[Rfam]
RNA sequence: GCGAUGAGCUCGUUUGCGUAAGACGUACAAACACUCCUGAAAAGGAACACGUUGUGGAGCGUGGUUUGGAACGCCGCAAACUUUCGAGAUACACCUUGCCUACGGGCGGGGUGU
Numbered sequence: 001g002c003g004a005u006g007a008g009c010u011c012g013u014u015u016g017c018g019u020a021a022g023a024c025g026u027a028c029a030a031a032c033a034c035u036c037c038u039g040a041a042a043a044g045g046a047a048c049a050c051g052u053u054g055u056g057g058a059g060c061g062u063g064g065u066u067u068g069g070a071a072c073g074c075c076g077c078a079a080a081c082u083u084u085c086g087a088g089a090u091a092c093a094c095c096u097u098g099c100c101u102a103c104g105g106g107c108g109g110g111g112u113g114u
Base pairs, nucleotide, nucleotide: 014079015078016077017076018075024073025072026071029067030066031065032064035045036044048063049062051060052059053058091114092113093112094111095110096109097108098107099106
RNA: BsrF